[Rfam]
RNA sequence: AGAGGCCCACUGUGGCUGGAGCGGGAUACUUGCCUCAUCGCCGUGGCGACGAAGCAAGCAUUCCGCCAGGCCGCUCACGCUGCCCGC
Numbered sequence: 001a002g003a004g005g006c007c008c009a010c011u012g013u014g015g016c017u018g019g020a021g022c023g024g025g026a027u028a029c030u031u032g033c034c035u036c037a038u039c040g041c042c043g044u045g046g047c048g049a050c051g052a053a054g055c056a057a058g059c060a061u062u063c064c065g066c067c068a069g070g071c072c073g074c075u076c077a078c079g080c081u082g083c084c085c086g087c
Stems, first nucleotide, its partner, number of pairs: 004084003012074006021066007029058005038049004
The record is an 87-nucleotide sequence from Cnephaeus nilssonii, which matches "mir-9195 microRNA precursor family" in Rfam. NCBI's taxonomy places the organism under Eukaryota, Vertebrata, Chiroptera, Vespertilionidae, Cnephaeus. Rfam links the family to the GO terms RISC complex and miRNA-mediated post-transcriptional gene silencing. Pairs were carried over by alignment from the consensus structure, which was predicted with RNAalifold.